The family of this 71-nucleotide RNA sequence from Desulfurivibrio alkaliphilus is "int-alpA RNA". NCBI's taxonomy places the organism under Bacteria, Pseudomonadati, Desulfobulbaceae, Desulfurivibrio, Desulfurivibrio alkaliphilus. Rfam classes the family as a small RNA. Acidobacteria (1 example), Planctomycetes (1 example), Proteobacteria. The base pairs follow the family's consensus structure, which is taken from published work.
RNA sequence: GGACCGGCUAGGAUGGCCCCCCGAAAAGCCGCUUCCCUGGCGGCCCGCCGGUCCGAUAUUUUUUCACAGGG
Numbered sequence: 001g002g003a004c005c006g007g008c009u010a011g012g013a014u015g016g017c018c019c020c021c022c023g024a025a026a027a028g029c030c031g032c033u034u035c036c037c038u039g040g041c042g043g044c045c046c047g048c049c050g051g052u053c054c055g056a057u058a059u060u061u062u063u064u065c066a067c068a069g070g071g
Stems, first nucleotide, its partner, number of pairs: 001054008011022002028044005035071005